[Rfam]
Rfam assigns this 75-nucleotide RNA sequence from Vulpes vulpes to the family "Small nucleolar RNA SNORD83". The base pairs follow the family's consensus structure, which was predicted with PFOLD. Taxonomically the source falls in Vulpes (Eukaryota, Chordata, Vertebrata, Gnathostomata).
RNA sequence: GCCACAUGAUGUUAUUUCGAGGAGUGAGCGCUUUGCGCAAGGAUGACCUUAAUCUAUCACCAGUAACUGAUGGCU
Numbered sequence: 001g002c003c004a005c006a007u008g009a010u011g012u013u014a015u016u017u018c019g020a021g022g023a024g025u026g027a028g029c030g031c032u033u034u035g036c037g038c039a040a041g042g043a044u045g046a047c048c049u050u051a052a053u054c055u056a057u058c059a060c061c062a063g064u065a066a067c068u069g070a071u072g073g074c075u
Stems, first nucleotide, its partner, number of pairs: 001074004028038004